[Rfam]
RNA sequence: CUGCCUAAACCCGUAGAUCCGAACUUGUGUUGUGUUUGCAAACCACAGGUUCGCCGCUAUGGGUCUAAGCAGU
Numbered sequence: 001c002u003g004c005c006u007a008a009a010c011c012c013g014u015a016g017a018u019c020c021g022a023a024c025u026u027g028u029g030u031u032g033u034g035u036u037u038g039c040a041a042a043c044c045a046c047a048g049g050u051u052c053g054c055c056g057c058u059a060u061g062g063g064u065c066u067a068a069g070c071a072g073u
Base pairs, nucleotide, nucleotide: 002071003070004069006067007066010063011062012061015058016057020053021052022051023050024049025048026047027046028045029044
mir-10 microRNA precursor family: a 73-nucleotide RNA sequence from Oppiella nova. On this family, see Lee and Ambros, Science 2001: "An extensive class of small RNAs in Caenorhabditis elegans". A search with the family's covariance model found it, with a score of 54 bits. The base pairs follow the family's consensus structure, which was predicted with PFOLD.